[Rfam]
A member of the RNA family "Plastid-psbM 3UTR RNA" from Corchorus capsularis, 77 nucleotides long. Plastid psbM is a non-coding RNA (ncRNA) recognised in plastids. It was found in the three prime untranslated region (3UTR) of psbM gene, its 3UTR location suggests a role in transcript maturation. Taxonomically the source falls in Corchorus (Eukaryota, Streptophyta, Embryophyta, Gunneridae). For this family Rfam cites "Retrograde signaling in plants: A critical review focusing on the GUN pathway and beyond" (Richter et al., Plant Commun, 2023).
RNA sequence: ACUACGAUAGUAUGGUAGAAAAAAUAAGGAAUCUUUCUACCAUACUAUCUAUUAUUGUAAUGUAUAAAGAAUACAAU
Dot-bracket structure: .....((((((((((((((((.(........).))))))))))))))))............................